[Rfam]
RNA sequence: UUCUUAUCAAGAGAGGUGGAGGGUCUGGCCCGGUGAAGCCUCAGCAACCCCUGACAAGUCAGGAAGGUGCUACAUCCUGCAGAGCAAAUGCGGCUCUGAGAGAUAAGAG
Numbered sequence: 001u002u003c004u005u006a007u008c009a010a011g012a013g014a015g016g017u018g019g020a021g022g023g024u025c026u027g028g029c030c031c032g033g034u035g036a037a038g039c040c041u042c043a044g045c046a047a048c049c050c051c052u053g054a055c056a057a058g059u060c061a062g063g064a065a066g067g068u069g070c071u072a073c074a075u076c077c078u079g080c081a082g083a084g085c086a087a088a089u090g091c092g093g094c095u096c097u098g099a100g101a102g103a104u105a106a107g108a109g
Stems, first nucleotide, its partner, number of pairs: 001109008013042005021031003025079001027077002043071004048067002050063004075101001080098006

SAM riboswitch aptamer (S box leader): a 109-nucleotide sequence from Ectobacillus ponti. Pairs were carried over by alignment from the consensus structure, which is taken from published work.